[Rfam]
Annotation: The family of this 49-nucleotide RNA is "ssNA-helicase RNA". It is annotated as a small RNA.
RNA sequence: UUGCCUAAGGGCUAGUUUUACCUUAGGCAAACCUCUGUCUCUUGUAGCA
Numbered sequence: 001u002u003g004c005c006u007a008a009g010g011g012c013u014a015g016u017u018u019u020a021c022c023u024u025a026g027g028c029a030a031a032c033c034u035c036u037g038u039c040u041c042u043u044g045u046a047g048c049a
Stems, first nucleotide, its partner, number of pairs: 001030010